[Rfam]
RNA sequence: CCCCAUUUGGACCAUAAUGAGCACCAAGACCAACGUAUGAUGUGAUUGGUCUUAUGAAUCCACUUUGUGGGUUUGGGCUCAGGAAAGUCCCCGGGCCAUUACGCAGAGAUGCGCACUUGGAAACAAGUUAAGGUUCGUAGCAAAUCCAGGCUAAGACACGUGUGGAGCUACUGGAUUUGCUUGAGCUAAAUUUGGCCGAAUAAACAGUCAUUUCAAAUGGUCACUUGUGUGACUAACUGAACGGGGCUUAUUAUCCAUGGG
Number, nucleotide and partner (000 for none) at each position: 001c000002c000003c000004c259005a000006u000007u000008u257009g256010g255011a254012c000013c000014a218015u217016a000017a000018u215019g214020a213021g000022c000023a000024c076025c075026a074027a073028g072029a000030c070031c000032a000033a000034c000035g000036u000037a000038u000039g000040a055041u054042g053043u000044g051045a050046u000047u000048g000049g000050u045051c044052u000053u042054a041055u040056g000057a000058a000059u000060c000061c000062a000063c000064u000065u000066u000067g000068u000069g000070g030071g000072u028073u027074u026075g025076g024077g000078c000079u000080c000081a000082g000083g000084a000085a249086a248087g247088u000089c246090c245091c244092c243093g000094g000095g000096c000097c000098a000099u000100u000101a000102c113103g112104c111105a110106g000107a000108g000109a000110u105111g104112c103113g102114c000115a128116c127117u126118u125119g124120g000121a000122a000123a000124c119125a118126a117127g116128u115129u000130a000131a187132g186133g000134u000135u000136c000137g000138u000139a181140g180141c179142a178143a177144a176145u175146c174147c173148a000149g169150g168151c167152u000153a000154a000155g000156a000157c000158a163159c000160g000161u000162g000163u158164g000165g000166a000167g151168c150169u149170a000171c000172u000173g147174g146175a145176u144177u143178u142179g141180c140181u139182u000183g000184a000185g000186c132187u131188a000189a000190a000191u000192u000193u000194g000195g000196c000197c000198g000199a000200a000201u000202a000203a000204a000205c000206a000207g000208u000209c000210a000211u000212u000213u020214c019215a018216a000217a015218u014219g000220g233221u232222c231223a230224c229225u000226u000227g000228u000229g224230u223231g222232a221233c220234u000235a000236a000237c000238u000239g000240a000241a000242c000243g092244g091245g090246g089247c087248u086249u085250a000251u000252u000253a000254u011255c010256c009257a008258u000259g004260g000261g000
RNA: RNase MRP
Organism: Artemisia annua